[Rfam]
RNA sequence: AGAGGUUGCAAGUGUAAGGCCAUAGUAGAAAUGCUCACAGCACAGCCCUGUCAGAUUCUAACGAAUCUUCAAAUUCUACC
Numbered sequence: 001a002g003a004g005g006u007u008g009c010a011a012g013u014g015u016a017a018g019g020c021c022a023u024a025g026u027a028g029a030a031a032u033g034c035u036c037a038c039a040g041c042a043c044a045g046c047c048c049u050g051u052c053a054g055a056u057u058c059u060a061a062c063g064a065a066u067c068u069u070c071a072a073a074u075u076c077u078a079c080c
Base pairs, nucleotide, nucleotide: 018047019046020045025079026078027077028076029075030074032042033041053068054067055066056065057064058063
RNA: Mammalian CPEB3 ribozyme
Organism: Crocodylus porosus